The family of this 155-nucleotide sequence from Pseudorhodobacter sp. MZDSW-24AT is "ALIL pseudoknot". Pairs were carried over by alignment from the consensus structure, which is taken from published work. Its family is annotated with positive regulation of translational frameshifting in the Gene Ontology. The family's RNA type in Rfam is cis-regulatory element. NCBI's taxonomy places the organism under Bacteria, Pseudomonadati, Alphaproteobacteria, Rhodobacterales, Pseudorhodobacter.
RNA sequence: AGCGUAUUUUGCGAUGGUGCGGAAGGCAGUGCGGCAUUGCUUCAGCACUGCCUGUAGCGGCUCGACCGCCCGUUUCGCAAAUGACUGCUUUCAUUGAAGAACACCGCGGAACAUACGGGGUCGAGCCGAUGUGAAAAAUUCUACAAAUCGCCCCG
Number, nucleotide and partner (000 for none) at each position: 001a000002g000003c000004g000005u000006a000007u000008u000009u000010u000011g000012c000013g000014a000015u000016g070017g069018u068019g067020c000021g000022g000023a000024a000025g000026g000027c000028a000029g000030u000031g000032c000033g000034g000035c000036a000037u000038u000039g000040c000041u000042u000043c000044a000045g000046c000047a000048c000049u000050g000051c000052c000053u000054g000055u000056a000057g000058c000059g000060g000061c000062u000063c000064g000065a000066c000067c019068g018069c017070c016071c000072g000073u000074u000075u000076c000077g000078c000079a000080a000081a000082u000083g000084a000085c000086u000087g000088c000089u000090u000091u000092c000093a000094u000095u000096g000097a000098a000099g000100a000101a000102c000103a000104c000105c000106g000107c000108g000109g000110a000111a000112c000113a000114u000115a000116c155117g154118g153119g152120g151121u000122c000123g000124a000125g000126c000127c150128g149129a000130u147131g000132u145133g144134a000135a142136a000137a000138a000139u000140u000141c000142u135143a000144c133145a132146a000147a130148u000149c128150g127151c120152c119153c118154c117155g116